[Rfam]
RNA sequence: CCGUACCCACGGGGAGUUAGCGGCACCUUGUAACCUGCAAUCCGCUAUAGCAGGGUGUUUGCUCAGGCUGAGGCUUUUUUUAUUUUGGUCAGCCCGAUGUAAGUGGUGUUGACAAAUGGGUCUUACGCAACAGAAAUCCAUGAACCUCGUCAGGUCCGGGAGGAAGCAGCGAUAAGUGGACACUUUUGUGUGCCGUAAGGUUGCCUGUUUCGAGUUAACUGCAUCGGUAACGCAAGGGAAAAACAAGUCGAAGCUUGAGUGUACGG
Numbered sequence: 001c002c003g004u005a006c007c008c009a010c011g012g013g014g015a016g017u018u019a020g021c022g023g024c025a026c027c028u029u030g031u032a033a034c035c036u037g038c039a040a041u042c043c044g045c046u047a048u049a050g051c052a053g054g055g056u057g058u059u060u061g062c063u064c065a066g067g068c069u070g071a072g073g074c075u076u077u078u079u080u081u082a083u084u085u086u087g088g089u090c091a092g093c094c095c096g097a098u099g100u101a102a103g104u105g106g107u108g109u110u111g112a113c114a115a116a117u118g119g120g121u122c123u124u125a126c127g128c129a130a131c132a133g134a135a136a137u138c139c140a141u142g143a144a145c146c147u148c149g150u151c152a153g154g155u156c157c158g159g160g161a162g163g164a165a166g167c168a169g170c171g172a173u174a175a176g177u178g179g180a181c182a183c184u185u186u187u188g189u190g191u192g193c194c195g196u197a198a199g200g201u202u203g204c205c206u207g208u209u210u211c212g213a214g215u216u217a218a219c220u221g222c223a224u225c226g227g228u229a230a231c232g233c234a235a236g237g238g239a240a241a242a243a244c245a246a247g248u249c250g251a252a253g254c255u256u257g258a259g260u261g262u263a264c265g266g
Base pairs, nucleotide, nucleotide: 001266002265003264004263005262006261008057009056010055011029012028013027014026016024017023018022034054035053036052037051038050063258064257065256066255067254068253069252072249073248074247075246076245078242079241080240081239083237084236085235086234087233092228095226096225097224098223099222100221103219104218105216106215107214114210115209116208117207118206119205120204121203122199123198124197125196126195127194128190129189131188132187133186134185135184137180138179139178140177141176147172148171149170150169155164156163157162
RNA: Bacterial large signal recognition particle RNA